[Rfam]
Nucleotides: 122
Base pairs, nucleotide, nucleotide: 007040011037012036013035014034015033016032017031045077046076047075048074049073050072051071052070053069054068086117087116088115089114090113091112092111093110094109095108096107
Number, partner (000 for none) and nucleotide at each position: 001000c002000a003000a004000c005000a006000u007040c008000g009000a010000a011037g012036c013035g014034a015033c016032g017031c018000a019000c020000u021000c022000c023000u024000c025000c026000u027000c028000c029000c030000a031017g032016c033015g034014u035013c036012g037011u038000g039000a040007g041000a042000u043000a044000g045077g046076a047075u048074c049073g050072g051071c052070a053069a054068u055000a056000c057000u058000c059000c060000u061000c062000c063000u064000c065000c066000c067000a068054a069053u070052u071051g072050c073049c074048g075047a076046u077045c078000g079000a080000g081000u082000u083000u084000a085000a086117g087116a088115g089114c090113c091112u092111g093110a094109c095108g096107c097000a098000c099000c100000u101000c102000c103000u104000c105000c106000c107096g108095c109094g110093u111092c112091a113090g114089g115088c116087u117086c118000u119000u120000u121000u122000c